[Rfam]
RNA sequence: GGCUGGUCCGAAGGUAGUGAGUUAUCUCACUCGAUUGUUCACAGUCAGUUACAGAUUGAACUCAUUGUUCCACUAUUUUCUCACUCCUCACUACUGCACUUGAUUAGUCUUAA
Numbered sequence: 001g002g003c004u005g006g007u008c009c010g011a012a013g014g015u016a017g018u019g020a021g022u023u024a025u026c027u028c029a030c031u032c033g034a035u036u037g038u039u040c041a042c043a044g045u046c047a048g049u050u051a052c053a054g055a056u057u058g059a060a061c062u063c064a065u066u067g068u069u070c071c072a073c074u075a076u077u078u079u080c081u082c083a084c085u086c087c088u089c090a091c092u093a094c095u096g097c098a099c100u101u102g103a104u105u106a107g108u109c110u111u112a113a
Stems, first nucleotide, its partner, number of pairs: 001109008010101002014097002016092006044074001048070001

Record summary:
Rfam assigns this 113-nucleotide sequence from Prolemur simus to the family "Y RNA". The base pairs follow the family's consensus structure, which is taken from published work. Rfam classes the family as a non-coding RNA gene.